This 103-nucleotide RNA sequence belongs to the Rfam family "SAM-I/IV (S-adenosyl methionine) riboswitch aptamer". It is one of the family's seed sequences. Gene Ontology terms of the family: S-adenosylmethionine metabolic process and regulation of gene expression. A reference for the family is Trausch et al. (2014), "Structural basis for diversity in the SAM clan of riboswitches", PNAS. Its Rfam clan is "SAM clan".
Nucleotides: 103
Stems, first nucleotide, its partner, number of pairs: 006073005015029001017028004030055003035051003038047003042098001044096001075085004
Number, partner (000 for none) and nucleotide at each position: 001000c002000c003000u004000c005000a006073g007072c008071a009070u010069u011000a012000a013000g014000a015029g016000a017028g018027g019026g020025c021000u022000g023000a024000c025020g026019c027018c028017c029015c030055g031054c032053c033000a034000a035051c036050c037049u038047g039046c040045a041000g042098c043000u044096g045040u046039g047038c048000a049037a050036g051035g052000u053032g054031g055030u056000c057000u058000c059000c060000c061000g062000c063000c064000a065000g066000g067000g068000a069010a070009a071008u072007g073006u074000g075085g076084c077083c078082u079000u080000c081000a082078a083077g084076g085075c086000a087000a088000c089000a090000a091000c092000a093000g094000c095000g096044u097000c098042g099000g100000c101000c102000u103000c